[Rfam]
RNA sequence: GGGGCCGACCUGGUUUCGACGUGGGUGCGGAAUUGGAGUGGUGCAUGCCGAGCAUCAGUGAGCUCGUAAAUCCAGCUGAAACAAACCAACUGCGAACGACGAACGUUUCGCCCUCGCCGCUUAAACACCGGUGAGCGUCUCAACGGCAGGCCGAUGGGCCGGGCCCAAGCCGCAAGGUGGAAGGCUGAGACGUCAUGCACAUCGGCUGGUUGCUCGUCGGGUCACUCGGCGUUCAACGAGACUCAGUGACUGGCGUUGUCCGUAGCGUGCUUCUGCGCGACGGCGGCGUGAGACUCAAAUCAGACAGCUAAGCAUGUAGAUCUACCUGAGGAUGGCUUGCGGACGGGGGUUCGAUUCCCCCCGGCUCCACCA
Numbered sequence: 001g002g003g004g005c006c007g008a009c010c011u012g013g014u015u016u017c018g019a020c021g022u023g024g025g026u027g028c029g030g031a032a033u034u035g036g037a038g039u040g041g042u043g044c045a046u047g048c049c050g051a052g053c054a055u056c057a058g059u060g061a062g063c064u065c066g067u068a069a070a071u072c073c074a075g076c077u078g079a080a081a082c083a084a085a086c087c088a089a090c091u092g093c094g095a096a097c098g099a100c101g102a103a104c105g106u107u108u109c110g111c112c113c114u115c116g117c118c119g120c121u122u123a124a125a126c127a128c129c130g131g132u133g134a135g136c137g138u139c140u141c142a143a144c145g146g147c148a149g150g151c152c153g154a155u156g157g158g159c160c161g162g163g164c165c166c167a168a169g170c171c172g173c174a175a176g177g178u179g180g181a182a183g184g185c186u187g188a189g190a191c192g193u194c195a196u197g198c199a200c201a202u203c204g205g206c207u208g209g210u211u212g213c214u215c216g217u218c219g220g221g222u223c224a225c226u227c228g229g230c231g232u233u234c235a236a237c238g239a240g241a242c243u244c245a246g247u248g249a250c251u252g253g254c255g256u257u258g259u260c261c262g263u264a265g266c267g268u269g270c271u272u273c274u275g276c277g278c279g280a281c282g283g284c285g286g287c288g289u290g291a292g293a294c295u296c297a298a299a300u301c302a303g304a305c306a307g308c309u310a311a312g313c314a315u316g317u318a319g320a321u322c323u324a325c326c327u328g329a330g331g332a333u334g335g336c337u338u339g340c341g342g343a344c345g346g347g348g349g350u351u352c353g354a355u356u357c358c359c360c361c362c363g364g365c366u367c368c369a370c371c372a
Stems, first nucleotide, its partner, number of pairs: 001368007020341007033329004038325004044316005049066005055079005113135007136192006144161004150206007209237004215231003220251005257286001260283004265278003269308003273303003345361005
RNA: transfer-messenger RNA
Organism: Methylibium petroleiphilum